RNA sequence: UACAUGGAGGAAAUGCCAUGCAGCAGAGUUGUUCUGCUUGUCCAAUUGAUGAUUAUUUCCCUGAUUAUCAAUUCGGUUGCGUCUGAAUCAUACUCCUCAAU
Dot-bracket structure: ..(((((........))))).(((((((...))))))).(.((((((((((((((......)))))))))))).)).).......................

Notes
Rfam assigns this 101-nucleotide RNA sequence to the family "folP RNA". The family's RNA type in Rfam is cis-regulatory element. Pairs were carried over by alignment from the consensus structure, which is taken from published work.